[Rfam]
RNA: msiK RNA
Organism: Buchananella hordeovulneris
RNA sequence: UGCUGACACCUUCACUACGGAUCGUCCGGCACGUACCUGCCGGUGAAGGGAAUGAAU
Numbered sequence: 001u002g003c004u005g006a007c008a009c010c011u012u013c014a015c016u017a018c019g020g021a022u023c024g025u026c027c028g029g030c031a032c033g034u035a036c037c038u039g040c041c042g043g044u045g046a047a048g049g050g051a052a053u054g055a056a057u
Stems, first nucleotide, its partner, number of pairs: 009049006026043006